[Rfam]
RNA sequence: UGCGAAGUAGAAUCCGACGCGUCAAGUGUCCGUGGAUGGGGAGUUGUCACGGGACGAAAAGCCGGACGGGCUUACGAUGUCUGAUUCGCACCCGUUGCU
Numbered sequence: 001u002g003c004g005a006a007g008u009a010g011a012a013u014c015c016g017a018c019g020c021g022u023c024a025a026g027u028g029u030c031c032g033u034g035g036a037u038g039g040g041g042a043g044u045u046g047u048c049a050c051g052g053g054a055c056g057a058a059a060a061g062c063c064g065g066a067c068g069g070g071c072u073u074a075c076g077a078u079g080u081c082u083g084a085u086u087c088g089c090a091c092c093c094g095u096u097g098c099u
Stems, first nucleotide, its partner, number of pairs: 002098004010087005016081004020076003026055002029053007039093003043089001059073004
This 99-nucleotide RNA sequence from Lachnoclostridium sp. An196 belongs to the Rfam family "THF (Tetrahydrofolate) riboswitch aptamer".
A reference for the family is Huang et al. (2011), "Long-range pseudoknot interactions dictate the regulatory response in the tetrahydrofolate riboswitch", Proc Natl Acad Sci U S A.
Its family is annotated with tetrahydrofolate metabolic process in the Gene Ontology.
The organism belongs to Lachnoclostridium, within Bacteria.